[Rfam]
RNA: Lysine riboswitch aptamer
RNA sequence: UAAGAAGAUAGAGGCGCGGAUUUUAUCAGUAUUUAUGGACGGAAGGCCCUGGCAGGCUGUUCAUAAAGAAAGGAAAAUCUGCCGAAGUGCUCUGGAAGGCCAGAUGACAGGGCGCUGGGAUAACGCAGAAUAUGCGUUGUACUGUCACGGAUGUGGAGCGCUAUCGGUAGC
Numbered sequence: 001u002a003a004g005a006a007g008a009u010a011g012a013g014g015c016g017c018g019g020a021u022u023u024u025a026u027c028a029g030u031a032u033u034u035a036u037g038g039a040c041g042g043a044a045g046g047c048c049c050u051g052g053c054a055g056g057c058u059g060u061u062c063a064u065a066a067a068g069a070a071a072g073g074a075a076a077a078u079c080u081g082c083c084g085a086a087g088u089g090c091u092c093u094g095g096a097a098g099g100c101c102a103g104a105u106g107a108c109a110g111g112g113c114g115c116u117g118g119g120a121u122a123a124c125g126c127a128g129a130a131u132a133u134g135c136g137u138u139g140u141a142c143u144g145u146c147a148c149g150g151a152u153g154u155g156g157a158g159c160g161c162u163a164u165c166g167g168u169a170g171c
Base pairs, nucleotide, nucleotide: 007165008164009163010162011161016082017081018080019079020078021077022076023075024074032067033066034065035064036063037062038061039060086116087115088114089113090112091111092110093109094108097105117143118142120140121139122138123137124136125135126134127133145156146155147154148153